[Rfam]
RNA sequence: GUAAAUGCGCAGAAAGGGAGAAGUACCUGCACCCCUGGCAGAAAGAGAGCGCGCCGAAUGCUGAAAGGCGCGUAUGCUAAGCGGCAGCGAAAUGCACCCGGGAGCAGUGCGGCGGAAAUGAGUAUGCCGCAACGGUUUGCCCCGUUACCGGCCAAAGCGUUAGCUUGAGUAUAAACAAGAGUGGAACCGCAGUAUCGUUUUAUUGCCUCUGUC
Numbered sequence: 001g002u003a004a005a006u007g008c009g010c011a012g013a014a015a016g017g018g019a020g021a022a023g024u025a026c027c028u029g030c031a032c033c034c035c036u037g038g039c040a041g042a043a044a045g046a047g048a049g050c051g052c053g054c055c056g057a058a059u060g061c062u063g064a065a066a067g068g069c070g071c072g073u074a075u076g077c078u079a080a081g082c083g084g085c086a087g088c089g090a091a092a093u094g095c096a097c098c099c100g101g102g103a104g105c106a107g108u109g110c111g112g113c114g115g116a117a118a119u120g121a122g123u124a125u126g127c128c129g130c131a132a133c134g135g136u137u138u139g140c141c142c143c144g145u146u147a148c149c150g151g152c153c154a155a156a157g158c159g160u161u162a163g164c165u166u167g168a169g170u171a172u173a174a175a176c177a178a179g180a181g182u183g184g185a186a187c188c189g190c191a192g193u194a195u196c197g198u199u200u201u202a203u204u205g206c207c208u209c210u211g212u213c
Stems, first nucleotide, its partner, number of pairs: 007105002016099003027087004038077003049073006108131007133144003160173001163170002178210004189206005